[Rfam]
RNA sequence: CAUAUUGUAUGACGACGGCAGAGAGCACACUUAUAGACGCCCAUGACCACAGCAUGAAUGCUAACAAGUGUGCUCUCUCUCGUCGUCAACCAAUU
Numbered sequence: 001c002a003u004a005u006u007g008u009a010u011g012a013c014g015a016c017g018g019c020a021g022a023g024a025g026c027a028c029a030c031u032u033a034u035a036g037a038c039g040c041c042c043a044u045g046a047c048c049a050c051a052g053c054a055u056g057a058a059u060g061c062u063a064a065c066a067a068g069u070g071u072g073c074u075c076u077c078u079c080u081c082g083u084c085g086u087c088a089a090c091c092a093a094u095u
Stems, first nucleotide, its partner, number of pairs: 010088005016082002020078002023075001025073008034064001